[Rfam]
RNA: M-box riboswitch aptamer (ykoK leader)
Organism: Clostridium sp. JN-9
RNA sequence: AAUAAACCUCGGUAGGUGAGGUUACUACAAGGAUACGGGUUGCUGCCGAAAAAGAGUGGAAACACUUUGAACUGGUCAGCAGAUUUUGCCGAACAAAGAAGGCUUAAUCUAAUGCAGCUUCAUUGCCUUGCAGAGCCAAAACUUGAACGAGAAAGCAUUGCU
Numbered sequence: 001a002a003u004a005a006a007c008c009u010c011g012g013u014a015g016g017u018g019a020g021g022u023u024a025c026u027a028c029a030a031g032g033a034u035a036c037g038g039g040u041u042g043c044u045g046c047c048g049a050a051a052a053a054g055a056g057u058g059g060a061a062a063c064a065c066u067u068u069g070a071a072c073u074g075g076u077c078a079g080c081a082g083a084u085u086u087u088g089c090c091g092a093a094c095a096a097a098g099a100a101g102g103c104u105u106a107a108u109c110u111a112a113u114g115c116a117g118c119u120u121c122a123u124u125g126c127c128u129u130g131c132a133g134a135g136c137c138a139a140a141a142c143u144u145g146a147a148c149g150a151g152a153a154a155g156c157a158u159u160g161c162u
Base pairs, nucleotide, nucleotide: 005158008155009154011148013100015143016142017141020137021136022135025133026132028130029129030128031127032126039118040117041116042115043114045076046075047074048073055066056065057064058063082109083108084107085106088103089102090101